[Rfam]
RNA: Iron response element I
Organism: Alligator mississippiensis
RNA sequence: CGGUUCCUGCUUCAACAGUGUUUGGACGGAACCUG
Dot-bracket structure: .((((((.(.((((((...).))))))))))))..